[Rfam]
RNA sequence: UGCAUCGGUCAGUAGCUGCAGAUGCAGAGGAAAGUCCGUGCUAGCACUACCUGCGAUGGUAGUAGUGAUCUUGCUAAAUCUAAUAAAUUUAGGCUUUUUGACGACUAGUGCCACAGAGACGAUAAAUGUGAAACGGGUAAACUCCAAGAGCUAGAAACCCAAAUUUUGGUAGGGGAAUUCGAGUUUAAUAACUGAAUUAAACUCGAAAACUAUUUUUUAAUAGUUAGAUAAAUUACUGACAAUUGAAUUUCAAUUACAGAACACGGCUUAUAGAU
Dot-bracket structure: ...(((((((((((.((((....))))....[[[.[[[[[(((((((((((......)))))).....(((((((((((.......))))))((.....).)((...(((((.......................)))..))))))))))))))...(((...........)))...(((((((................)))))))((((((......))))))........))))))).(((((...))))).......]]]]]]]].).)))
Numbered sequence: 001u002g003c004a005u006c007g008g009u010c011a012g013u014a015g016c017u018g019c020a021g022a023u024g025c026a027g028a029g030g031a032a033a034g035u036c037c038g039u040g041c042u043a044g045c046a047c048u049a050c051c052u053g054c055g056a057u058g059g060u061a062g063u064a065g066u067g068a069u070c071u072u073g074c075u076a077a078a079u080c081u082a083a084u085a086a087a088u089u090u091a092g093g094c095u096u097u098u099u100g101a102c103g104a105c106u107a108g109u110g111c112c113a114c115a116g117a118g119a120c121g122a123u124a125a126a127u128g129u130g131a132a133a134c135g136g137g138u139a140a141a142c143u144c145c146a147a148g149a150g151c152u153a154g155a156a157a158c159c160c161a162a163a164u165u166u167u168g169g170u171a172g173g174g175g176a177a178u179u180c181g182a183g184u185u186u187a188a189u190a191a192c193u194g195a196a197u198u199a200a201a202c203u204c205g206a207a208a209a210c211u212a213u214u215u216u217u218u219a220a221u222a223g224u225u226a227g228a229u230a231a232a233u234u235a236c237u238g239a240c241a242a243u244u245g246a247a248u249u250u251c252a253a254u255u256a257c258a259g260a261a262c263a264c265g266g267c268u269u270a271u272a273g274a275u
Stems, first nucleotide, its partner, number of pairs: 004275003007271001008240007016027004032269003036266005041154005046063006069149005074092006093102001094100001103144002108142002110138003158174003178207007208225006242254005